[Rfam]
RNA sequence: GUGUUGAGGAUUGUGACAUGGAGCAUUAGCUGUUGAAGAAAUUUCAGCUAGUGCUCAUGUUACAAUUCCCAUCAUU
Numbered sequence: 001g002u003g004u005u006g007a008g009g010a011u012u013g014u015g016a017c018a019u020g021g022a023g024c025a026u027u028a029g030c031u032g033u034u035g036a037a038g039a040a041a042u043u044u045c046a047g048c049u050a051g052u053g054c055u056c057a058u059g060u061u062a063c064a065a066u067u068c069c070c071a072u073c074a075u076u
Base pairs, nucleotide, nucleotide: 001075002074003073005071006070008068010066011065012064013063014062015061016060017059018058019057022055023054024053025052026051027050028049029048030047031046
Shown here is a 76-nucleotide sequence from Nicotiana attenuata, a member of the family "MIR6145 microRNA precursor family". It scores 55 bits against the family's covariance model.